[Rfam]
RNA sequence: UGCAGAGUAGAUUUUGAAGCGUUAAGUGCUAUGUGAACAGGGAGUUGUCACUUAGACGAAAAGAGUAUCUUGCGGUUUCAAAGUCGCAUCCCGCUGCU
Numbered sequence: 001u002g003c004a005g006a007g008u009a010g011a012u013u014u015u016g017a018a019g020c021g022u023u024a025a026g027u028g029c030u031a032u033g034u035g036a037a038c039a040g041g042g043a044g045u046u047g048u049c050a051c052u053u054a055g056a057c058g059a060a061a062a063g064a065g066u067a068u069c070u071u072g073c074g075g076u077u078u079c080a081a082a083g084u085c086g087c088a089u090c091c092c093g094c095u096g097c098u
Stems, first nucleotide, its partner, number of pairs: 002097004010085010020074003026057002029055003033051004040091003044087001061071004
This 98-nucleotide RNA sequence from Lachnospira multipara belongs to the Rfam family "THF (Tetrahydrofolate) riboswitch aptamer". On this family, see Huang et al., Proc Natl Acad Sci U S A 2011: "Long-range pseudoknot interactions dictate the regulatory response in the tetrahydrofolate riboswitch". From the family's description: Tetrahydrofolate (THF) riboswitch was first reported for Ames et al. as an RNA motif in 5' untranslated (5'-UTR)regions of folate transport and biosynthesis genes in Firmicutes genomes. Rfam links the family to the GO term tetrahydrofolate metabolic process. It scores 88 bits against the family's covariance model.